[Rfam]
RNA sequence: UGAGUAAGCUAGACGGUCGCGCUUAGAGCAAUCUAGGUGAGGAAAGUCCGAGCUCCAUAGGGCAGGGUGCCAGUUAACGGCUGGUGGAGGCGACUCUAAGGAUAGUGCAACAGAAAUAAACCGCCAUGUUUCAUUACAUGGUAAGGAUGGAAAGGUGAGGUAAGAGCUCACCGCUUUCUUGGUAACAAGAGAGGCAUAUGUAAACCCCACUCGGUGCAAGACAUUAAAGUGUGAUGGCGGCCCGCUUAGCACUUGGUUAGUCGCUUGAGCUUAUUGGUGACAAUAAGACUAGACAGAUGACCGUUCAAGACAGAACUCGGCUUAUCGGCUUGCUCACUUC
Number, nucleotide and partner (000 for none) at each position: 001u336002g335003a334004g333005u332006a331007a330008g329009c328010u327011a325012g305013a304014c303015g302016g301017u300018c299019g000020c039021g038022c037023u036024u035025a034026g033027a032028g000029c000030a000031a000032u027033c026034u025035a024036g023037g022038u021039g020040a000041g000042g000043a000044a323045a322046g321047u000048c320049c319050g318051a317052g316053c216054u000055c214056c213057a000058u000059a000060g243061g242062g241063c240064a000065g212066g211067g210068u209069g208070c084071c083072a082073g081074u080075u000076a000077a000078c000079g000080g074081c073082u072083g071084g070085u099086g097087g096088a095089g094090g000091c000092g000093a000094c089095u088096c087097u086098a000099a085100g207101g206102a000103u000104a000105g205106u204107g201108c200109a199110a000111c000112a000113g000114a000115a000116a000117u000118a000119a000120a000121c146122c145123g142124c141125c140126a139127u138128g137129u136130u000131u000132c000133a000134u000135u000136a129137c128138a127139u126140g125141g124142u123143a000144a000145g122146g121147a000148u000149g000150g000151a000152a000153a000154g172155g171156u170157g169158a168159g167160g000161u000162a000163a000164g000165a000166g000167c159168u158169c157170a156171c155172c154173g195174c193175u192176u191177u190178c189179u188180u187181g186182g000183u000184a000185a000186c181187a180188a179189g178190a177191g176192a175193g174194g000195c173196a000197u000198a000199u109200g108201u107202a000203a000204a106205c105206c101207c100208c069209a068210c067211u066212c065213g056214g055215u000216g053217c000218a000219a000220g262221a261222c260223a000224u000225u000226a000227a254228a253229g252230u251231g250232u249233g000234a000235u000236g246237g245238c244239g000240g063241c062242c061243c060244g238245c237246u236247u000248a000249g232250c231251a230252c229253u228254u227255g000256g000257u000258u000259a000260g222261u221262c220263g000264c000265u000266u000267g000268a000269g000270c287271u286272u285273a284274u283275u282276g281277g000278u000279g000280a000281c276282a275283a274284u273285a272286a271287g270288a000289c000290u000291a000292g000293a000294c000295a000296g000297a000298u000299g018300a017301c016302c015303g014304u013305u012306c000307a000308a000309g000310a000311c000312a000313g000314a000315a000316c052317u051318c050319g049320g048321c046322u045323u044324a000325u011326c000327g010328g009329c008330u007331u006332g005333c004334u003335c002336a001337c000338u000339u000340c000

A member of the RNA family "Bacterial RNase P class A" from Petrocella atlantisensis, 340 nucleotides long. Ribonuclease P (RNase P) is a ubiquitous endoribonuclease, found in archaea, bacteria and eukarya as well as chloroplasts and mitochondria. Rfam classes the family as a ribozyme. It scores 289 bits against the family's covariance model. The family's consensus secondary structure is taken from published work.